Rfam assigns this 98-nucleotide RNA sequence from Campylobacter fetus to the family "Bacterial small signal recognition particle RNA". By type it is a non-coding RNA gene. The source organism's lineage runs through Bacteria, Pseudomonadati, Epsilonproteobacteria, Campylobacteraceae and Campylobacter fetus subsp. fetus. On this family, see Righetti et al., Proc Natl Acad Sci U S A 2016: "Temperature-responsive in vitro RNA structurome of Yersinia pseudotuberculosis". The match comes from Rfam's covariance-model search (58 bits).
[Rfam]
RNA sequence: UCCUUAGACCUGUGCAAUGCUUUUAAAAAGAACCGCUUCAGGAUGGGAACAUAGCAGAGCACUUUUUCUUAGUGUGUGCCGCAGUCAUCUGGGGAAGG
Numbered sequence: 001u002c003c004u005u006a007g008a009c010c011u012g013u014g015c016a017a018u019g020c021u022u023u024u025a026a027a028a029a030g031a032a033c034c035g036c037u038u039c040a041g042g043a044u045g046g047g048a049a050c051a052u053a054g055c056a057g058a059g060c061a062c063u064u065u066u067u068c069u070u071a072g073u074g075u076g077u078g079c080c081g082c083a084g085u086c087a088u089c090u091g092g093g094g095a096a097g098g
Base pairs, nucleotide, nucleotide: 004092005091006090007089008088010084011083012082013081014080015076017075018074019073020072021071025067026066027065028064029063030062035060036059037058038057043052044051045050